[Rfam]
RNA sequence: CAUAUAUACCGCUCUAUCGCUUUCGGAAUGCCGGAAGAGGAAAGUCCGGACAACGUAGAGUACCACACCAUCUAACGGAUGGGAUUUCUCCAAAAGAGGAGUACAGCAUAGUGUCACAGAAAAUAACCGCCUUCGGGUAAGGGUGAAAAUGAGAGGUAAGAGCUCUCGUGGUGGUGCAGCAAUGUGUCAUCAGGACAAACCUUGUGGGUUGAAAUGUCAUGUAUAUCCAUAUCUUCUUGUAAGAAAAACUGACUCGGUUUUUUAGCUUAACGGCUUAUGUGGAGGGGUAGGCAGCUUAGAUAAAUGAUAGAGGGCAUGCAGCAAUGUAUGUUACAGAAUCCGGCUUAUAGGUAUAUAUUUUUA
Numbered sequence: 001c002a003u004a005u006a007u008a009c010c011g012c013u014c015u016a017u018c019g020c021u022u023u024c025g026g027a028a029u030g031c032c033g034g035a036a037g038a039g040g041a042a043a044g045u046c047c048g049g050a051c052a053a054c055g056u057a058g059a060g061u062a063c064c065a066c067a068c069c070a071u072c073u074a075a076c077g078g079a080u081g082g083g084a085u086u087u088c089u090c091c092a093a094a095a096g097a098g099g100a101g102u103a104c105a106g107c108a109u110a111g112u113g114u115c116a117c118a119g120a121a122a123a124u125a126a127c128c129g130c131c132u133u134c135g136g137g138u139a140a141g142g143g144u145g146a147a148a149a150u151g152a153g154a155g156g157u158a159a160g161a162g163c164u165c166u167c168g169u170g171g172u173g174g175u176g177c178a179g180c181a182a183u184g185u186g187u188c189a190u191c192a193g194g195a196c197a198a199a200c201c202u203u204g205u206g207g208g209u210u211g212a213a214a215u216g217u218c219a220u221g222u223a224u225a226u227c228c229a230u231a232u233c234u235u236c237u238u239g240u241a242a243g244a245a246a247a248a249c250u251g252a253c254u255c256g257g258u259u260u261u262u263u264a265g266c267u268u269a270a271c272g273g274c275u276u277a278u279g280u281g282g283a284g285g286g287g288u289a290g291g292c293a294g295c296u297u298a299g300a301u302a303a304a305u306g307a308u309a310g311a312g313g314g315c316a317u318g319c320a321g322c323a324a325u326g327u328a329u330g331u332u333a334c335a336g337a338a339u340c341c342g343g344c345u346u347a348u349a350g351g352u353a354u355a356u357a358u359u360u361u362u363a
Base pairs, nucleotide, nucleotide: 002358003357004356005355006354007353008352009351010350011348012312013311014310015309016308017307018306020037021036022035023034024033025032026031042346043345044344046343047342048341049340050339051211052210053209054208058271063207064206065205066204067203068082069081070080071079072078083104084102085101086100087099088098089097090096105202106201111200112199113196114195115194127142128141129138130137131136150168151167152166153165154164155163170191171190172189173188174187175186176185177184178183215293216292217291218290226283227282228281229280230279262277264275265274266273
Background:
The family of this 363-nucleotide RNA is "Bacterial RNase P class A". It is annotated as a ribozyme.